This 587-nucleotide part of an RNA from Calditerricola satsumensis belongs to the Rfam family "Bacterial small subunit ribosomal RNA".

[Rfam]
RNA sequence: UGCAUGGAGAGUUUGAUCCUGGCUCAGGACGAACGCUGGCGGCGCGCCUAAUACAUGCAAGUCGAGCGGGGCUUUUCGCGUGAAGCCUUCGGGCGGAUCGCGGGGAGCCUAGCGGCGAACGGGUGCGUAACACGUGGGCAACCUGCCCCGAGGACCGGGAUAACUCCGGGAAACCGGGGCUAAUACCGGAUAGGACGGCGGACCGCAUGGUCCGCCGUGGAAAGGCGGCGCAAGCUGCCACCUCGGGAUGGGCCCGCGGCCCAUUAGCUUGUUGGUGGGGUAACGGCCCACCAAGGCGACGAUGGGUAGCCGGCCUGAGAGGGUGACCGGCCACACUGGGACUGAGACACGGCCCAGACUCCUACGGGAGGCAGCAGUAGGGAAUCUUCCGCAAUGGGCGAAAGCCUGACGGAGCGACGCCGCGUGAGGGAGGAAGGCCUUCGGGUCGUAAACCUCUGUUGUCAGGGACGAACCCGUGCGGUUCGAAGAGGGCCGUGCGCUGACGGUACCUGACGAGGAAGCCCCGGCUAACUACGUGCCAGCAGCCGCGGUAAAACGUAGGGGGCGAGCGUUGUCCGGAAUUACUG
Numbered sequence: 001u002g003c004a005u006g007g008a009g010a011g012u013u014u015g016a017u018c019c020u021g022g023c024u025c026a027g028g029a030c031g032a033a034c035g036c037u038g039g040c041g042g043c044g045c046g047c048c049u050a051a052u053a054c055a056u057g058c059a060a061g062u063c064g065a066g067c068g069g070g071g072c073u074u075u076u077c078g079c080g081u082g083a084a085g086c087c088u089u090c091g092g093g094c095g096g097a098u099c100g101c102g103g104g105g106a107g108c109c110u111a112g113c114g115g116c117g118a119a120c121g122g123g124u125g126c127g128u129a130a131c132a133c134g135u136g137g138g139c140a141a142c143c144u145g146c147c148c149c150g151a152g153g154a155c156c157g158g159g160a161u162a163a164c165u166c167c168g169g170g171a172a173a174c175c176g177g178g179g180c181u182a183a184u185a186c187c188g189g190a191u192a193g194g195a196c197g198g199c200g201g202a203c204c205g206c207a208u209g210g211u212c213c214g215c216c217g218u219g220g221a222a223a224g225g226c227g228g229c230g231c232a233a234g235c236u237g238c239c240a241c242c243u244c245g246g247g248a249u250g251g252g253c254c255c256g257c258g259g260c261c262c263a264u265u266a267g268c269u270u271g272u273u274g275g276u277g278g279g280g281u282a283a284c285g286g287c288c289c290a291c292c293a294a295g296g297c298g299a300c301g302a303u304g305g306g307u308a309g310c311c312g313g314c315c316u317g318a319g320a321g322g323g324u325g326a327c328c329g330g331c332c333a334c335a336c337u338g339g340g341a342c343u344g345a346g347a348c349a350c351g352g353c354c355c356a357g358a359c360u361c362c363u364a365c366g367g368g369a370g371g372c373a374g375c376a377g378u379a380g381g382g383a384a385u386c387u388u389c390c391g392c393a394a395u396g397g398g399c400g401a402a403a404g405c406c407u408g409a410c411g412g413a414g415c416g417a418c419g420c421c422g423c424g425u426g427a428g429g430g431a432g433g434a435a436g437g438c439c440u441u442c443g444g445g446u447c448g449u450a451a452a453c454c455u456c457u458g459u460u461g462u463c464a465g466g467g468a469c470g471a472a473c474c475c476g477u478g479c480g481g482u483u484c485g486a487a488g489a490g491g492g493c494c495g496u497g498c499g500c501u502g503a504c505g506g507u508a509c510c511u512g513a514c515g516a517g518g519a520a521g522c523c524c525c526g527g528c529u530a531a532c533u534a535c536g537u538g539c540c541a542g543c544a545g546c547c548g549c550g551g552u553a554a555a556a557c558g559u560a561g562g563g564g565g566c567g568a569g570c571g572u573u574g575u576c577c578g579g580a581a582u583u584a585c586u587g
Stems, first nucleotide, its partner, number of pairs: 009025005027577004032573006039423006045416002047381001052379003056376003061116003066113002069109002073106007123334003133258007142251002147247007155189004164179006195218010224239005260306003267297003272294008309331004313324004336357005359370004387413001389412003395408005426456004436447004460518001461514006470504001476498007521566005532561005542549002
Source information: A search with the family's covariance model found it, with a score of 1600 bits.